[Rfam]
TD-2 RNA: a 97-nucleotide RNA from Treponema pedis. The match comes from Rfam's covariance-model search (53 bits). On this family, see Weinberg et al., Nucleic Acids Res 2007: "Identification of 22 candidate structured RNAs in bacteria using the CMfinder comparative genomics pipeline". Rfam classes the family as a small RNA.
RNA sequence: GCGGACAGGACGUCCGCCGGAACAAUCCCUUUUGCGAGUUUUCUUGUAAGAAAACUCGGGCUUUACCGAAGUACAGGACGUACUUCGGUAAAGCGGG
Dot-bracket structure: ((((((.....)))))).................((((((((((....))))))))))..((((((((((((((.....))))))))))))))....